Shown here is a 364-nucleotide RNA from Psychrobacter cryohalolentis, a member of the family "Bacterial RNase P class A".
On this family, see Brown, Nucleic Acids Res 1999: "The Ribonuclease P Database".
The family's consensus secondary structure is taken from published work.
Rfam's curators write: Ribonuclease P (RNase P) is a ubiquitous endoribonuclease, found in archaea, bacteria and eukarya as well as chloroplasts and mitochondria. Its best characterised activity is the generation of mature 5'-ends of tRNAs by cleaving the 5'-leader elements of precursor-tRNAs.
It is one of the family's seed sequences.
RNA sequence: UUGGUAGACUAGGCAAUCGCCGCUGCACACUGGCAACAGACAUGCAGGGGAGGAAAGUCCGGGCUACAUAGGGCAGCGUGCCAGCUAACGGCUGGGCAGGGUAACUUGACGACCAGUGCAGCAGAGAGUAGACCGCCUUUAGUGUCUGACACUAUCGGUAAGGGUGAAAGGGUGCGGUAAGAGCGCACCGCGUGGCUGGCAACAGUUCACGGCAUGGUAAACUCCACGCGUAGCAAGACCAAAUAGGCAUCGGCAUGGCGCGGCCCGCGUUCGAUGCGGGUAGGUUGCUUGAGCGUAUUAGCGAUGAUACGCCUAGAGGAAUGAUUGUCCACGACAGAACCCGGCUUAUCGGUUUACCAACCUU
Number, nucleotide and partner (000 for none) at each position: 001u360002u359003g358004g357005u356006a355007g354008a353009c352010u351011a349012g329013g328014c327015a326016a325017u324018c323019g000020c050021c049022g000023c047024u046025g045026c044027a043028c000029a000030c000031u000032g000033g000034c000035a000036a000037c000038a000039g000040a000041c000042a000043u027044g026045c025046a024047g023048g000049g021050g020051a000052g000053g000054a000055a347056a346057g345058u000059c344060c343061g342062g341063g340064c233065u232066a231067c230068a000069u000070a000071g266072g265073g264074c263075a000076g229077c228078g227079u226080g225081c095082c094083a093084g092085c091086u000087a000088a000089c000090g000091g085092c084093u083094g082095g081096g110097c108098a107099g106100g105101g000102u000103a000104a000105c100106u099107u098108g097109a000110c096111g224112a223113c000114c000115a000116g222117u221118g218119c217120a000121g000122c000123a000124g000125a000126g000127a000128g000129u000130a000131g000132a000133c163134c162135g159136c158137c157138u000139u000140u154141a153142g152143u151144g000145u000146c000147u000148g000149a000150c000151a143152c142153u141154a140155u000156c000157g137158g136159u135160a000161a000162g134163g133164g000165u000166g000167a000168a000169a000170g000171g189172g188173u187174g186175c185176g184177g000178u000179a000180a000181g000182a000183g000184c176185g175186c174187a173188c172189c171190g213191c211192g210193u209194g208195g207196c205197u204198g203199g000200c000201a000202a000203c198204a197205g196206u000207u195208c194209a193210c192211g191212g000213c190214a000215u000216g000217g119218u118219a000220a000221a117222c116223u112224c111225c080226a079227c078228g077229c076230g067231u066232a065233g064234c000235a000236a000237g286238a285239c284240c283241a000242a000243a000244u000245a000246g000247g277248c276249a275250u274251c273252g272253g000254c000255a000256u000257g271258g270259c269260g268261c267262g000263g074264c073265c072266c071267g261268c260269g259270u258271u257272c252273g251274a250275u249276g248277c247278g000279g000280g000281u000282a000283g240284g239285u238286u237287g000288c000289u000290u000291g000292a000293g312294c311295g310296u309297a308298u307299u306300a305301g000302c000303g000304a000305u300306g299307a298308u297309a296310c295311g294312c293313c000314u000315a000316g000317a000318g000319g000320a000321a000322u000323g018324a017325u016326u015327g014328u013329c012330c000331a000332c000333g000334a000335c000336a000337g000338a000339a000340c063341c062342c061343g060344g059345c057346u056347u055348a000349u011350c000351g010352g009353u008354u007355u006356a005357c004358c003359a002360a001361c000362c000363u000364u000